The family of this 79-nucleotide sequence from Aminipila luticellarii is "Clostridiales-2 RNA".
Pairs were carried over by alignment from the consensus structure, which is taken from published work.
Rfam classes the family as a small RNA.
RNA sequence: AAAAAAUAGGGAGGGCAGAGGGGGCAACCCUCGCCGAUAAAGGAGGGUGCUCAGGCUGCUUGCAGCCGCCGAAGGGAAC
Numbered sequence: 001a002a003a004a005a006a007u008a009g010g011g012a013g014g015g016c017a018g019a020g021g022g023g024g025c026a027a028c029c030c031u032c033g034c035c036g037a038u039a040a041a042g043g044a045g046g047g048u049g050c051u052c053a054g055g056c057u058g059c060u061u062g063c064a065g066c067c068g069c070c071g072a073a074g075g076g077a078a079c
Base pairs, nucleotide, nucleotide: 015034016033018032019031020030021029022028054067055066056065057064058063